[Rfam]
RNA sequence: CGGGAGGUUGGCGCGGACGUGUUCCUCGUCGAUCGGGUCAGGUCCGGAAGGAAGCAGCCCAGGUGAGAUCCUCACGGGUCGAUGUCCAACCUCCUACUC
Numbered sequence: 001c002g003g004g005a006g007g008u009u010g011g012c013g014c015g016g017a018c019g020u021g022u023u024c025c026u027c028g029u030c031g032a033u034c035g036g037g038u039c040a041g042g043u044c045c046g047g048a049a050g051g052a053a054g055c056a057g058c059c060c061a062g063g064u065g066a067g068a069u070c071c072u073c074a075c076g077g078g079u080c081g082a083u084g085u086c087c088a089a090c091c092u093c094c095u096a097c098u099c
Stems, first nucleotide, its partner, number of pairs: 004093005010086004014081002018076004025067006035060004043052003